[Rfam]
RNA sequence: GGUUUUUACCCAGUAUCUCAAGGUACUAGGAACGUUCUGACCGAUGCGAAAGCAUUGUGUUUGAAACCAAAAUUUUUGGGAUUCGCCACCGGGGUUUACCGGUGGUUCAUA
Numbered sequence: 001g002g003u004u005u006u007u008a009c010c011c012a013g014u015a016u017c018u019c020a021a022g023g024u025a026c027u028a029g030g031a032a033c034g035u036u037c038u039g040a041c042c043g044a045u046g047c048g049a050a051a052g053c054a055u056u057g058u059g060u061u062u063g064a065a066a067c068c069a070a071a072a073u074u075u076u077u078g079g080g081a082u083u084c085g086c087c088a089c090c091g092g093g094g095u096u097u098a099c100c101g102g103u104g105g106u107u108c109a110u111a
Stems, first nucleotide, its partner, number of pairs: 008035001009030002013026002018023001039061003042057001044055004088106004093100002

Description: A member of the RNA family "SL2 RNA" from Panagrellus redivivus, 111 nucleotides long. This family represents SL2 RNA. SL2 RNA is involved in trans splicing in lower eukaryotes. Trans-splicing is a form of RNA processing. The acquisition of a spliced leader from a SL RNA is a intra-molecular reaction which precisely joins exons derived from separately transcribed RNAs. Rfam links the family to the GO term mRNA trans splicing, via spliceosome. NCBI's taxonomy places the organism under Eukaryota, Metazoa, Chromadorea, Panagrolaimidae, Panagrellus. Clan: SL clan. Pairs were carried over by alignment from the consensus structure, which is taken from published work. It scores 42 bits against the family's covariance model.